Rfam assigns this 215-nucleotide part of an RNA from Daldinia sp. EC12 to the family "Ascomycota telomerase RNA". For this family Rfam cites "The common ancestral core of vertebrate and fungal telomerase RNAs" (Qi et al., Nucleic Acids Res, 2013). Clan: Telomerase clan. Rfam classes the family as a non-coding RNA gene. The family has 4 seed sequences and 475 matches in Rfam 15.1. Its family is annotated with telomerase activity, telomere maintenance via telomerase and telomerase catalytic core complex in the Gene Ontology. The pairing is the family consensus, mapped onto this sequence.
RNA sequence: UCCCCUACAGUCCUCCGACUCUCAUUUUCCGAAAGGAAUGUCUUCGCGACCCCUCGGUCGAAUCCAACACGCCUCGUAUGACACGUCGCUGCUCGGGGUCUGGGCCUGAUGAGCAUUGCCGCGUGAGGAUCGUCGUGCGAAGGUAGCCAGUCCCACCUGGCUAAUGGACCGACUGCUAGGGAAUGGUGUCUCGGAACUUAACCCUAACUACCUUA
Numbered sequence: 001u002c003c004c005c006u007a008c009a010g011u012c013c014u015c016c017g018a019c020u021c022u023c024a025u026u027u028u029c030c031g032a033a034a035g036g037a038a039u040g041u042c043u044u045c046g047c048g049a050c051c052c053c054u055c056g057g058u059c060g061a062a063u064c065c066a067a068c069a070c071g072c073c074u075c076g077u078a079u080g081a082c083a084c085g086u087c088g089c090u091g092c093u094c095g096g097g098g099u100c101u102g103g104g105c106c107u108g109a110u111g112a113g114c115a116u117u118g119c120c121g122c123g124u125g126a127g128g129a130u131c132g133u134c135g136u137g138c139g140a141a142g143g144u145a146g147c148c149a150g151u152c153c154c155a156c157c158u159g160g161c162u163a164a165u166g167g168a169c170c171g172a173c174u175g176c177u178a179g180g181g182a183a184u185g186g187u188g189u190c191u192c193g194g195a196a197c198u199u200a201a202c203c204c205u206a207a208c209u210a211c212c213u214u215a
Stems, first nucleotide, its partner, number of pairs: 009198003015194004